Nucleotides: 106
Base pairs, nucleotide, nucleotide: 003104004103005102006101007100008099013043014042015041016040017039021032022031023030026080027079028078029077044072045071046070047069049068050067052063053062054061076098081095082094083093085091086090
Number, partner (000 for none) and nucleotide at each position: 001000c002000u003104c004103u005102u006101a007100u008099c009000a010000a011000g012000a013043a014042a015041g016040g017039c018000a019000g020000a021032g022031g023030g024000a025000u026080a027079u028078g029077g030023c031022c032021c033000a034000a035000u036000g037000a038000a039017g040016c041015c042014u043013u044072g045071g046070c047069a048000a049068c050067c051000a052063c053062g054061c055000a056000c057000a058000a059000c060000u061054g062053c063052g064000a065000a066000a067050g068049g069047u070046g071045c072044c073000a074000a075000c076098u077029c078028c079027a080026u081095c082094a083093c084000a085091c086090u087000a088000c089000a090086g091085g092000c093083g094082u095081g096000a097000c098076a099008g100007a101006u102005a103004a104003g105000u106000a
The record is a 106-nucleotide sequence from Ilyomonas limi, which matches "SAM riboswitch aptamer (S box leader)" in Rfam. The family is grouped with related families in Rfam's "SAM clan". Gene Ontology term of the family: regulation of gene expression. Lineage of the source: Bacteria > Bacteroidota > Chitinophagia > Chitinophagaceae > Ilyomonas. Pairs were carried over by alignment from the consensus structure, which is taken from published work.